[Rfam]
Purine riboswitch aptamer: a 100-nucleotide sequence from Heyndrickxia shackletonii. The organism belongs to Heyndrickxia, within Bacteria. Its family is annotated with purine nucleobase biosynthetic process in the Gene Ontology.

RNA sequence: AAACUACAUAAACAAUAACGAUGUAUAACCUCGAGAAUAUGGCUUGAGGGUUUCUACCAGGAACCGAAAAAUCCUGACUACAAAAAUGCAAUAACAUUUU
Numbered sequence: 001a002a003a004c005u006a007c008a009u010a011a012a013c014a015a016u017a018a019c020g021a022u023g024u025a026u027a028a029c030c031u032c033g034a035g036a037a038u039a040u041g042g043c044u045u046g047a048g049g050g051u052u053u054c055u056a057c058c059a060g061g062a063a064c065c066g067a068a069a070a071a072u073c074c075u076g077a078c079u080a081c082a083a084a085a086a087u088g089c090a091a092u093a094a095c096a097u098u099u100u
Base pairs, nucleotide, nucleotide: 022082023081024080025079029049030048031047032046033045034044035043058076059075060074061073062072